[Rfam]
Shown here is a 100-nucleotide RNA sequence from Lathyrus oleraceus, a member of the family "Small nucleolar RNA R32/R81/Z41". Rfam 15.1 lists 238 matches to the family in 139 species. The source organism's lineage runs through Eukaryota, Embryophyta, Magnoliopsida, Fabaceae and Lathyrus. The family's consensus secondary structure was predicted with PFOLD. Its family is annotated with nucleolus and RNA processing in the Gene Ontology.

Nucleotides: 100
Stems, first nucleotide, its partner, number of pairs: 004097004
Number, partner (000 for none) and nucleotide at each position: 001000a002000g003000a004097u005096g006095a007094a008000g009000a010000u011000g012000a013000u014000g015000a016000a017000a018000a019000g020000a021000a022000u023000a024000a025000u026000u027000a028000a029000a030000a031000a032000u033000g034000u035000c036000u037000g038000a039000u040000c041000a042000u043000c044000a045000a046000a047000u048000a049000u050000u051000g052000u053000g054000u055000u056000u057000g058000a059000u060000a061000u062000g063000a064000u065000c066000g067000a068000a069000u070000u071000a072000a073000u074000u075000a076000u077000c078000g079000c080000u081000a082000c083000g084000u085000u086000c087000u088000u089000u090000c091000u092000g093000a094007u095006u096005c097004a098000u099000u100000u